About this RNA: This 110-nucleotide RNA sequence from Lysobacter sp. Root96 belongs to the Rfam family "Xanthomonadaceae sRNA asX1". The family's consensus secondary structure was predicted with CMfinder. The literature on the family includes a 2011 paper in Nucleic Acids Res by Schmidtke et al., "Genome-wide transcriptome analysis of the plant pathogen Xanthomonas identifies sRNAs with putative virulence functions". The family's RNA type in Rfam is small RNA.
RNA sequence: CACCCAGCGGGGCAGGCGCUAGACGCCGGUCGGAAUUGGAACAGGGGCUGGCCAAGCGCUCGCGGGGGAAGCAGGGGGCCGAAUGUCGGGGGACAUUCGGCCCCUUAUUU
Numbered sequence: 001c002a003c004c005c006a007g008c009g010g011g012g013c014a015g016g017c018g019c020u021a022g023a024c025g026c027c028g029g030u031c032g033g034a035a036u037u038g039g040a041a042c043a044g045g046g047g048c049u050g051g052c053c054a055a056g057c058g059c060u061c062g063c064g065g066g067g068g069a070a071g072c073a074g075g076g077g078g079c080c081g082a083a084u085g086u087c088g089g090g091g092g093a094c095a096u097u098c099g100g101c102c103c104c105u106u107a108u109u110u
Base pairs, nucleotide, nucleotide: 003067004066005065007063008062009061010060011059012057013056015027016026017025018024028053029052030051031050032049033048036045037044074105075104076103077102078101079100080099081098082097083096084095085094086093087092
Dot-bracket structure: ..(((.(((((((.((((.....))))((((((..((......))..))))))..)).))))).)))......((((((((((((((....)))))))))))))).....